[Rfam]
RNA sequence: AAUAAAGAUAUGGAGGUGCUUGAACUUGCUUGUUGGUUUCGUGUCAUAACAGUUAUAG
Number, nucleotide and partner (000 for none) at each position: 001a000002a000003u000004a000005a000006a000007g045008a044009u043010a042011u041012g040013g039014a038015g037016g000017u035018g029019c028020u000021u000022g000023a000024a000025c000026u000027u000028g019029c018030u000031u000032g000033u000034u000035g017036g000037u015038u014039u013040c012041g011042u010043g009044u008045c007046a000047u000048a000049a000050c000051a000052g000053u000054u000055a000056u000057a000058g000

The record is a 58-nucleotide RNA sequence from Streptococcus pneumoniae, which matches "Streptococcus sRNA SpF61" in Rfam.
Rfam's curators put it in the seed alignment.
NCBI's taxonomy places the organism under Bacteria, Bacillota, Streptococcaceae, Streptococcus, Streptococcus pneumoniae.
The family's RNA type in Rfam is small RNA.
For this family Rfam cites "Control of virulence by small RNAs in Streptococcus pneumoniae" (Mann et al., PLoS Pathog, 2012).